[Rfam]
RNA: Small nucleolar RNA SNORA32
Organism: Rhinolophus ferrumequinum
RNA sequence: UGGUCAUUACCAAGGCUUUUAGAAUGCAGUUUCUCAUUUGAGGUGGCCAUGACCACAAAACAUUUUUCCAACUAGGUUUUCUUUCUUCUACUAGUAUGUUGCUAGCAUUCAGCCUAUUGGGAACAUUU
Numbered sequence: 001u002g003g004u005c006a007u008u009a010c011c012a013a014g015g016c017u018u019u020u021a022g023a024a025u026g027c028a029g030u031u032u033c034u035c036a037u038u039u040g041a042g043g044u045g046g047c048c049a050u051g052a053c054c055a056c057a058a059a060a061c062a063u064u065u066u067u068c069c070a071a072c073u074a075g076g077u078u079u080u081c082u083u084u085c086u087u088c089u090a091c092u093a094g095u096a097u098g099u100u101g102c103u104a105g106c107a108u109u110c111a112g113c114c115u116a117u118u119g120g121g122a123a124c125a126u127u128u
Stems, first nucleotide, its partner, number of pairs: 003053005010046003027040003068121002071118001075114004086107001088105003